[Rfam]
RNA: PreQ1 (pre queuosine) riboswitch aptamer
RNA sequence: AAAAACGUGGUUCGAAACCAUCCCACGAAAAAAAACUAGGAGGCA
Number, nucleotide and partner (000 for none) at each position: 001a000002a000003a000004a000005a000006c027007g026008u025009g024010g023011u000012u000013c000014g000015a000016a037017a000018c000019c000020a000021u000022c000023c010024c009025a008026c007027g006028a000029a000030a000031a000032a000033a000034a000035a000036c000037u016038a000039g000040g000041a000042g000043g000044c000045a000